Shown here is a 109-nucleotide RNA sequence from Streptomyces sp. TLI_185, a member of the family "Streptomyces RNA 4115". The base pairs follow the family's consensus structure. It is annotated as a small RNA. Identified by deep sequencing of transcriptome at the end of exponential growth phase. Sequencing size consistent with notrthern blot size. Streptomyces specific.

RNA sequence: GCGUGGGUCGGCCCGCUGUACUGGAUCCAGCGGGCUGGGGGACACCGCCGCCUUCAUCCCCGCGGGCGGCGGACGGGCCCGGGGGGCGAACUCCGUCUCCCGGGCUGCG
Numbered sequence: 001g002c003g004u005g006g007g008u009c010g011g012c013c014c015g016c017u018g019u020a021c022u023g024g025a026u027c028c029a030g031c032g033g034g035c036u037g038g039g040g041g042a043c044a045c046c047g048c049c050g051c052c053u054u055c056a057u058c059c060c061c062g063c064g065g066g067c068g069g070c071g072g073a074c075g076g077g078c079c080c081g082g083g084g085g086g087c088g089a090a091c092u093c094c095g096u097c098u099c100c101c102g103g104g105c106u107g108c109g
Base pairs, nucleotide, nucleotide: 001108002107007074008073009037010036011035012034013033014032015031016030017029018028038043045072046071047070048069049068050067051066052065053064055062076106077105078104079103080102081101082100083099084098085097086096087095088094